[Rfam]
RNA sequence: CCCGCAGCAGGACGAAAAGACCCCGUGCACCUUUACUACAACUUAACAUUGAAUUUAGAUUUAUCAUGAUUAGGAUAGGUGGGAGACUAUGAAACUUUGGCGACAGUUGAAGUGGAGUCAUCCUUGAAAUACCACCCUUGUUACAUUUGAAUUCUAAUUACUUACCUUGAAUCAGGUAAUAAGACAGUGUUUGGUGGGUAGUUUGACUGGGGCGGUCUCCUCCCAAAAGGUAACGGAGGAGUUCAAAGGUUUCCUCAGUACGGUUGGUAAUCGUACAUAGAGCACAAAGGUAGAAGGAAGCUUAACUGCAAGGUUGACAAACCAAGCAGAUACGAAAGUAGGACUUAGUGAUCCGGUGGUUCCGUGUGGAAGGGCCAUCGCUUAACGGAUAAAAGGUACGCCGGGGAUAACAGGCUUAUCUCCCCCAAGAGUUCAUAUCGACGGGGAGGUUUGGCACCUCGAUGUCGGCUCAUCGCAUCCUGGGGGUGGAGAAGCUCCCAAGGGUUUGGCUGUUCGCCAAUUAAAGCGGUACGUGAGCUGGGUUCAGAACGUCGUGAGACAGUUCGGUCUCUAUCCGCUGUGGGCGUA
Number, nucleotide and partner (000 for none) at each position: 001c584002c583003c582004g581005c580006a579007g578008c577009a000010g576011g575012a574013c000014g571015a570016a000017a000018a000019g000020a000021c000022c405023c404024c403025g402026u000027g401028c400029a397030c396031c395032u394033u393034u000035a202036c201037u200038a199039c000040a000041a000042c194043u193044u000045a191046a190047c189048a188049u000050u000051g154052a153053a152054u151055u150056u149057a148058g147059a146060u145061u000062u143063a142064u000065c140066a139067u000068g137069a000070u000071u000072a000073g000074g000075a000076u000077a000078g136079g135080u134081g133082g132083g000084a000085g119086a118087c117088u000089a000090u000091g000092a000093a000094a113095c112096u111097u110098u109099g108100g107101c106102g000103a000104c000105a000106g101107u100108u099109g098110a097111a096112g095113u094114g000115g000116a000117g087118u086119c085120a000121u000122c000123c000124u000125u000126g000127a000128a000129a000130u000131a000132c082133c081134a080135c079136c078137c068138u000139u066140g065141u000142u063143a062144c000145a060146u059147u058148u057149g056150a055151a054152u053153u052154c051155u000156a000157a000158u182159u181160a180161c000162u179163u178164a177165c176166c175167u174168u000169g000170a000171a000172u000173c000174a167175g166176g165177u164178a163179a162180u160181a159182a158183g000184a000185c000186a000187g000188u048189g047190u046191u045192u000193g043194g042195u000196g000197g000198g000199u038200a037201g036202u035203u000204u000205g217206a216207c215208u214209g000210g000211g000212g000213c000214g208215g207216u206217c205218u240219c239220c238221u237222c236223c235224c000225a000226a000227a000228a000229g000230g000231u000232a000233a000234c000235g223236g222237a221238g220239g219240a218241g386242u000243u343244c342245a000246a000247a000248g000249g301250u300251u299252u298253c297254c296255u281256c280257a000258g276259u275260a274261c273262g272263g271264u000265u000266g000267g000268u000269a000270a000271u263272c262273g261274u260275a259276c258277a000278u000279a000280g256281a255282g291283c290284a000285c000286a000287a000288a000289g000290g283291u282292a000293g000294a000295a000296g254297g253298a252299a251300g250301c249302u000303u000304a000305a000306c329307u328308g327309c326310a000311a000312g323313g322314u321315u000316g000317a000318c000319a000320a000321a314322c313323c312324a000325a000326g309327c308328a307329g306330a000331u340332a339333c338334g000335a000336a000337a000338g333339u332340a331341g000342g244343a243344c000345u000346u000347a000348g000349u000350g000351a000352u000353c000354c380355g379356g378357u377358g376359g375360u374361u000362c373363c372364g000365u000366g000367u000368g000369g000370a000371a000372g363373g362374g360375c359376c358377a357378u356379c355380g354381c000382u000383u000384a000385a000386c241387g000388g000389a000390u000391a000392a000393a033394a032395g031396g030397u029398a000399c000400g028401c027402c025403g024404g023405g022406g000407a000408u000409a000410a000411c000412a000413g000414g455415c454416u453417u000418a452419u449420c448421u447422c446423c445424c444425c443426c000427a000428a000429g439430a438431g000432u000433u000434c000435a000436u000437a000438u430439c429440g000441a000442c000443g425444g424445g423446g422447a421448g420449g419450u000451u000452u418453g416454g415455c414456a000457c000458c000459u000460c000461g000462a000463u000464g000465u000466c541467g539468g538469c537470u536471c533472a530473u529474c528475g527476c526477a000478u000479c504480c503481u000482g499483g498484g497485g496486g495487u494488g000489g000490a000491g000492a000493a000494g487495c486496u485497c484498c483499c482500a000501a000502g000503g480504g479505u000506u520507u519508g518509g517510c516511u000512g000513u000514u000515c000516g510517c509518c508519a507520a506521u000522u000523a000524a000525a000526g476527c475528g474529g473530u472531a000532c000533g471534u000535g000536a470537g469538c468539u467540g000541g466542g000543u000544u000545c000546a000547g565548a564549a563550c562551g560552u559553c558554g000555u000556g000557a000558g553559a552560c551561a000562g550563u549564u548565c547566g000567g000568u000569c000570u015571c014572u000573a000574u012575c011576c010577g008578c007579u006580g005581u004582g003583g002584g001585c000586g000587u000588a000

The family of this 588-nucleotide part of an RNA from uncultured Fidelibacterota bacterium HF0010_18O13 is "Bacterial large subunit ribosomal RNA". The literature on the family includes a 2001 paper in Science by Yusupov et al., "Crystal structure of the ribosome at 5.5 A resolution". The organism belongs to Fidelibacterota, within Bacteria. Rfam links the family to the GO terms ribosome and structural constituent of ribosome.